[Rfam]
This 255-nucleotide sequence from Cuscuta campestris belongs to the Rfam family "RNase MRP".
Pairs were carried over by alignment from the consensus structure, which is taken from published work.
It scores 60 bits against the family's covariance model.
Rfam classes the family as a ribozyme.
NCBI's taxonomy places the organism under Eukaryota, Embryophyta, Magnoliopsida, Cuscuteae, Cuscuta sect. Cleistogrammica.
RNA sequence: GGACUGCGUGACGGCGUCAGCGGGUCAGGCUCAAUCUUUGUGAUUGGGCCGAGAUCCAAGAAAGUCCCCGGGCCAUUUCUGCAGAGAUGCAGGCUCGGAAGCGAGUCUCCUUCACGGGCCGGAUAACGAGACCGAAUUGGUCUGGGCUGAGACAAGUGUGGAGCUUUGUUGUCCGGCUGGAAGGUCUUUGGCCGAUUUCACAGUCAUUCACGUGGCCCUAUGGGCUAAUUGAACGGGGCUUACGUUCCUGCGGUC
Numbered sequence: 001g002g003a004c005u006g007c008g009u010g011a012c013g014g015c016g017u018c019a020g021c022g023g024g025u026c027a028g029g030c031u032c033a034a035u036c037u038u039u040g041u042g043a044u045u046g047g048g049c050c051g052a053g054a055u056c057c058a059a060g061a062a063a064g065u066c067c068c069c070g071g072g073c074c075a076u077u078u079c080u081g082c083a084g085a086g087a088u089g090c091a092g093g094c095u096c097g098g099a100a101g102c103g104a105g106u107c108u109c110c111u112u113c114a115c116g117g118g119c120c121g122g123a124u125a126a127c128g129a130g131a132c133c134g135a136a137u138u139g140g141u142c143u144g145g146g147c148u149g150a151g152a153c154a155a156g157u158g159u160g161g162a163g164c165u166u167u168g169u170u171g172u173c174c175g176g177c178u179g180g181a182a183g184g185u186c187u188u189u190g191g192c193c194g195a196u197u198u199c200a201c202a203g204u205c206a207u208u209c210a211c212g213u214g215g216c217c218c219u220a221u222g223g224g225c226u227a228a229u230u231g232a233a234c235g236g237g238g239c240u241u242a243c244g245u246u247c248c249u250g251c252g253g254u255c
Stems, first nucleotide, its partner, number of pairs: 002255006008248001010247002014213004019208001022057002032046005062241003066238004080091004092107006109184003117178006153158001215225004